[Rfam]
RNA sequence: UGAGAGAACCACGUUUAAGGAACUCGGCAAAAUGCUCCCGUAAGUUCGCGAGAAGGGAGCCCCGUCUGUACGCAAGUAUGGGCGGGGGGCACAAUCCAGGGGGUGGCGACUGUUUACUUAAAACACAGGGCUCUGCGAAGUCGUAAGACGACGUAUAGGGUCUGACGCCUGCCCGGUGCCGGAAGGUUAAAAGGAGGGGUGCAAGCUCUGAAUUGAAGCCCCGGUAAACGGCGGCCGUAACUAUAACGGUCCUAAGGUAGCGAAAUUCCUUGUCGGGUAAGUUCCGACCUGCACGAAUGGCGUAACGAUCUCCCCGCUGUCUCAAACGUGGACUCA
Numbered sequence: 001u002g003a004g005a006g007a008a009c010c011a012c013g014u015u016u017a018a019g020g021a022a023c024u025c026g027g028c029a030a031a032a033u034g035c036u037c038c039c040g041u042a043a044g045u046u047c048g049c050g051a052g053a054a055g056g057g058a059g060c061c062c063c064g065u066c067u068g069u070a071c072g073c074a075a076g077u078a079u080g081g082g083c084g085g086g087g088g089g090c091a092c093a094a095u096c097c098a099g100g101g102g103g104u105g106g107c108g109a110c111u112g113u114u115u116a117c118u119u120a121a122a123a124c125a126c127a128g129g130g131c132u133c134u135g136c137g138a139a140g141u142c143g144u145a146a147g148a149c150g151a152c153g154u155a156u157a158g159g160g161u162c163u164g165a166c167g168c169c170u171g172c173c174c175g176g177u178g179c180c181g182g183a184a185g186g187u188u189a190a191a192a193g194g195a196g197g198g199g200u201g202c203a204a205g206c207u208c209u210g211a212a213u214u215g216a217a218g219c220c221c222c223g224g225u226a227a228a229c230g231g232c233g234g235c236c237g238u239a240a241c242u243a244u245a246a247c248g249g250u251c252c253u254a255a256g257g258u259a260g261c262g263a264a265a266u267u268c269c270u271u272g273u274c275g276g277g278u279a280a281g282u283u284c285c286g287a288c289c290u291g292c293a294c295g296a297a298u299g300g301c302g303u304a305a306c307g308a309u310c311u312c313c314c315c316g317c318u319g320u321c322u323c324a325a326a327c328g329u330g331g332a333c334u335c336a
Stems, first nucleotide, its partner, number of pairs: 001336004009331008018322003035059005044049001060087012088092001100315004105310002107307002111125003128163008136153001140149003166302004171232003176229002178225005185220003191214002196209005233251006252256001262289001272288006